The family of this 108-nucleotide sequence from Mesorhizobium amorphae is "Rhizobiales sRNA Atu_At1". Rfam classes the family as a small RNA. The base pairs follow the family's consensus structure, which was predicted with CMfinder. Lineage of the source: Bacteria > Pseudomonadati > Alphaproteobacteria > Hyphomicrobiales > Mesorhizobium amorphae. The family has 33 seed sequences and 200 matches in Rfam 15.1.
RNA sequence: ACGCGGGCCGCGUCAGCCGGACCAGGUGGCAAAGGGAACAGGGUUGGUUUCUCCGGCUUCACACCCUGGCCAACGAAAUGGCAGUCGAGCUCUUGUCCCACCCGGCCC
Numbered sequence: 001a002c003g004c005g006g007g008c009c010g011c012g013u014c015a016g017c018c019g020g021a022c023c024a025g026g027u028g029g030c031a032a033a034g035g036g037a038a039c040a041g042g043g044u045u046g047g048u049u050u051c052u053c054c055g056g057c058u059u060c061a062c063a064c065c066c067u068g069g070c071c072a073a074c075g076a077a078a079u080g081g082c083a084g085u086c087g088a089g090c091u092c093u094u095g096u097c098c099c100a101c102c103c104g105g106c107c108c
Stems, first nucleotide, its partner, number of pairs: 006107004012022003025102003028098002033093004039068006046062001069082003